RNA: c-di-AMP riboswitch aptamer (ydaO/yuaA leader)
RNA sequence: GUCGAGUCCCGGCCCGCUUCGGUGGUCCGGGAGCCGGGGAACCACCGGCGCUGCGUGCAGCGCCACUGGGGUGAAUCGCCCGUGAGGCACCGCACAGCGGUGAGGAGCGGGAGUAGGGCCUGUCGUGCCCGAACCCGUCAGCUCACCCGGUAGGCGUACGACACCGAGGAG
Numbered sequence: 001g002u003c004g005a006g007u008c009c010c011g012g013c014c015c016g017c018u019u020c021g022g023u024g025g026u027c028c029g030g031g032a033g034c035c036g037g038g039g040a041a042c043c044a045c046c047g048g049c050g051c052u053g054c055g056u057g058c059a060g061c062g063c064c065a066c067u068g069g070g071g072u073g074a075a076u077c078g079c080c081c082g083u084g085a086g087g088c089a090c091c092g093c094a095c096a097g098c099g100g101u102g103a104g105g106a107g108c109g110g111g112a113g114u115a116g117g118g119c120c121u122g123u124c125g126u127g128c129c130c131g132a133a134c135c136c137g138u139c140a141g142c143u144c145a146c147c148c149g150g151u152a153g154g155c156g157u158a159c160g161a162c163a164c165c166g167a168g169g170a171g
Base pairs, nucleotide, nucleotide: 001155002154003153007032008031009030010029011028012027033151034150035149036148037147038146043068044067069136070135071134077113079111080110081109082108083107116130117129118128119127